[Rfam]
RNA sequence: UUAAUAUUCCGUUAGGUGAGGUUCCUGCAUAAACAUAGGCCACUGCCCGGAAACGUCGAGAGACGCCAAUGGGUAGAGCAGGUAUGAUCGAAAUAAGGUCUUACUUAAGGUGGCUGAGUAAUGAGUUUAUACUCUACGUUGUGCAGUGCUAAAACUUGAACGACUGGAAAGGUUA
Numbered sequence: 001u002u003a004a005u006a007u008u009c010c011g012u013u014a015g016g017u018g019a020g021g022u023u024c025c026u027g028c029a030u031a032a033a034c035a036u037a038g039g040c041c042a043c044u045g046c047c048c049g050g051a052a053a054c055g056u057c058g059a060g061a062g063a064c065g066c067c068a069a070u071g072g073g074u075a076g077a078g079c080a081g082g083u084a085u086g087a088u089c090g091a092a093a094u095a096a097g098g099u100c101u102u103a104c105u106u107a108a109g110g111u112g113g114c115u116g117a118g119u120a121a122u123g124a125g126u127u128u129a130u131a132c133u134c135u136a137c138g139u140u141g142u143g144c145a146g147u148g149c150u151a152a153a154a155c156u157u158g159a160a161c162g163a164c165u166g167g168a169a170a171g172g173u174u175a
Stems, first nucleotide, its partner, number of pairs: 005171001007169004011161002013096001015156003020150003025146008039114005045074005054065004081105004087099003116134005